[Rfam]
RNA sequence: CUCCAGGGCAACCGUGGCUUUCGAUUGUUACUGUGGGAACCGGAGGUAACAGUCUACAGCCAUGGUCGCCCCGCAGCA
Dot-bracket structure: ...........((.((((....((((((((((............))))))))))....)))).)).............
RNA: mir-132 microRNA precursor family
Organism: Rattus norvegicus